[Rfam]
Shown here is a 146-nucleotide RNA, a member of the family "RT-3 RNA". It is annotated as a small RNA.
RNA sequence: AAUUAGCGUAAAGCAGGGAGGAUGUAUCCUCAAAGCGGAGCUAAAAGAGAUGCACCUUAGUAACAGCACCUUCGGGUGGAAAACUAAAAAAUAUAACGGUGAGUAGAGCUUGGUAGGUCAGAAAUGAUUCGAACAGCUUAGGCUCA
Numbered sequence: 001a002a003u004u005a006g007c008g009u010a011a012a013g014c015a016g017g018g019a020g021g022a023u024g025u026a027u028c029c030u031c032a033a034a035g036c037g038g039a040g041c042u043a044a045a046a047g048a049g050a051u052g053c054a055c056c057u058u059a060g061u062a063a064c065a066g067c068a069c070c071u072u073c074g075g076g077u078g079g080a081a082a083a084c085u086a087a088a089a090a091a092u093a094u095a096a097c098g099g100u101g102a103g104u105a106g107a108g109c110u111u112g113g114u115a116g117g118u119c120a121g122a123a124a125u126g127a128u129u130c131g132a133a134c135a136g137c138u139u140a141g142g143c144u145c146a
Stems, first nucleotide, its partner, number of pairs: 003044005013036002018031005047055001057087005067078004100146005106139005116129005